[Rfam]
RNA: mir-1278 microRNA precursor family
RNA sequence: UGAGUCUCUUAAGGAGAUGCAGAAAACUACCAAUAUACAAAAUAUAUUGGUAGUUUUCUGCAUCUCCUUAAGAGACUCA
Numbered sequence: 001u002g003a004g005u006c007u008c009u010u011a012a013g014g015a016g017a018u019g020c021a022g023a024a025a026a027c028u029a030c031c032a033a034u035a036u037a038c039a040a041a042a043u044a045u046a047u048u049g050g051u052a053g054u055u056u057u058c059u060g061c062a063u064c065u066c067c068u069u070a071a072g073a074g075a076c077u078c079a
Stems, first nucleotide, its partner, number of pairs: 001079028030050003035047003